Notes
The family of this 112-nucleotide RNA from Dracunculus medinensis is "Potassium channel RNA editing signal". The base pairs follow the family's consensus structure, which is taken from published work. Rfam's curators write: This family represents a group of sequences related to the human potassium channel Kv1.1 hairpin element which directs the efficient modification of an adenosine to inosine by an adenosine deaminase acting on RNA (ADAR). The ADAR modification causes an isoleucine/valine recoding event which lies in the ion-conducting pore of the potassium channel. It is thought that this editing event targets the process of fast inactivation and allows a more rapid recovery from inactivation at negative potentials. It is annotated as a cis-regulatory element. It scores 53 bits against the family's covariance model.
[Rfam]
RNA sequence: AUCGGUUAUGGUGAUAUGACACCGCACACUUACCUUGGUCGUAUCAUUGGCUCUGUAUGUGCGUUAGCUGGUGUAUUAACUAUUGCUUUGCCUGUUCCUGUAAGUUUUGAAC
Numbered sequence: 001a002u003c004g005g006u007u008a009u010g011g012u013g014a015u016a017u018g019a020c021a022c023c024g025c026a027c028a029c030u031u032a033c034c035u036u037g038g039u040c041g042u043a044u045c046a047u048u049g050g051c052u053c054u055g056u057a058u059g060u061g062c063g064u065u066a067g068c069u070g071g072u073g074u075a076u077u078a079a080c081u082a083u084u085g086c087u088u089u090g091c092c093u094g095u096u097c098c099u100g101u102a103a104g105u106u107u108u109g110a111a112c
Stems, first nucleotide, its partner, number of pairs: 004112001007109002010106002014101003018097002021095002037077003050062002